[Rfam]
RNA sequence: UCCUGAGCGCGUGCUUGACCACCACGUUGCGAAAGCUCACGCCCUUGAGCCGGGCGGUGCGGAUGUACUGCGCCGUCAUCACCUCGGCCAUCGACGCCCGCGUCAUCCGCGCGAUAUAGCCCAUGCCGUAGAGCGCGAUGGUGAACACCGGCAGGAAGAAGUUGCGGAAGGUGGCGUCC
Numbered sequence: 001u002c003c004u005g006a007g008c009g010c011g012u013g014c015u016u017g018a019c020c021a022c023c024a025c026g027u028u029g030c031g032a033a034a035g036c037u038c039a040c041g042c043c044c045u046u047g048a049g050c051c052g053g054g055c056g057g058u059g060c061g062g063a064u065g066u067a068c069u070g071c072g073c074c075g076u077c078a079u080c081a082c083c084u085c086g087g088c089c090a091u092c093g094a095c096g097c098c099c100g101c102g103u104c105a106u107c108c109g110c111g112c113g114a115u116a117u118a119g120c121c122c123a124u125g126c127c128g129u130a131g132a133g134c135g136c137g138a139u140g141g142u143g144a145a146c147a148c149c150g151g152c153a154g155g156a157a158g159a160a161g162u163u164g165c166g167g168a169a170g171g172u173g174g175c176g177u178c179c
Base pairs, nucleotide, nucleotide: 004141006139008137009136010135011134012133014131015130016128017127020125021124028123029122031120038113040111041110042109046105047104048103051100052099053098054097055075056074057073058072059071060070061069062068082096084094085093086092147177149174151172152171154165156163157162
This 179-nucleotide RNA from Rhodobacteraceae bacterium CCMM004 belongs to the Rfam family "Ruegeria cis52 sRNA". The family's RNA type in Rfam is small RNA. On this family, see Rivers et al., Front Microbiol 2016: "Experimental Identification of Small Non-Coding RNAs in the Model Marine Bacterium Ruegeria pomeroyi DSS-3". The match comes from Rfam's covariance-model search (153 bits). The organism belongs to Paracoccaceae, within Bacteria. The family has 2 seed sequences and 277 matches in Rfam 15.1.